[Rfam]
RNA sequence: CCAGCUCUCUUUGCCAUUAUGGCUUAGAUCAAGUGUAGUAUCUGUUCUUUUCAGUUUAAUCUCUGAAAGUAUUCUAAGGAAUACAACAUUGAUUAAUCUUAUUUUUGGACCUCGCGGAGAGACCUCUGUGCUUGCGCAUAUCUUUCCGCACCGUGUCAUCGGUCUUACACUACCACCGAUCGACGCGAAACCCA
Numbered sequence: 001c002c003a004g005c006u007c008u009c010u011u012u013g014c015c016a017u018u019a020u021g022g023c024u025u026a027g028a029u030c031a032a033g034u035g036u037a038g039u040a041u042c043u044g045u046u047c048u049u050u051u052c053a054g055u056u057u058a059a060u061c062u063c064u065g066a067a068a069g070u071a072u073u074c075u076a077a078g079g080a081a082u083a084c085a086a087c088a089u090u091g092a093u094u095a096a097u098c099u100u101a102u103u104u105u106u107g108g109a110c111c112u113c114g115c116g117g118a119g120a121g122a123c124c125u126c127u128g129u130g131c132u133u134g135c136g137c138a139u140a141u142c143u144u145u146c147c148g149c150a151c152c153g154u155g156u157c158a159u160c161g162g163u164c165u166u167a168c169a170c171u172a173c174c175a176c177c178g179a180u181c182g183a184c185g186c187g188a189a190a191c192c193c194a
Base pairs, nucleotide, nucleotide: 008028009027010026013023014022015021049068050067051066052065053064054063069084070083071082072081073080074079114149115148116147117146118145119144120143121142127138128137129136130135152187153186154185155184156183157182158180159179160178161177162176163175
The family of this 194-nucleotide sequence from Coccidioides immitis is "U2 spliceosomal RNA".
A reference for the family is Zwieb (1997), "The uRNA database", Nucleic Acids Res.
Gene Ontology terms of the family: pre-mRNA branch point binding, mRNA branch site recognition and U2 snRNP.
The base pairs follow the family's consensus structure, which is taken from published work.
The sequence is in the family's curated seed alignment.
Lineage of the source: Eukaryota > Dikarya > Onygenales > Onygenaceae > Coccidioides immitis.
The family's RNA type in Rfam is spliceosomal small nuclear RNA.